A member of the RNA family "Purine riboswitch aptamer" from Spiroplasma sp. NBRC 100390, 98 nucleotides long. A search with the family's covariance model found it, with a score of 53 bits. NCBI's taxonomy places the organism under Bacteria, Mycoplasmatota, Entomoplasmatales, Spiroplasmataceae, Spiroplasma. Its family is annotated with purine nucleobase biosynthetic process in the Gene Ontology.

[Rfam]
RNA sequence: GUGUGAUAAAAAUAAAAUGCUUAUAUAUGUUAGUGUUAUGGACUAAUGUUUCUACAUCUUACCGUUAUUAAGAUACUAUAGGUCAUGAAGAUUCUUUU
Numbered sequence: 001g002u003g004u005g006a007u008a009a010a011a012a013u014a015a016a017a018u019g020c021u022u023a024u025a026u027a028u029g030u031u032a033g034u035g036u037u038a039u040g041g042a043c044u045a046a047u048g049u050u051u052c053u054a055c056a057u058c059u060u061a062c063c064g065u066u067a068u069u070a071a072g073a074u075a076c077u078a079u080a081g082g083u084c085a086u087g088a089a090g091a092u093u094c095u096u097u098u
Stems, first nucleotide, its partner, number of pairs: 019083007030046005056074006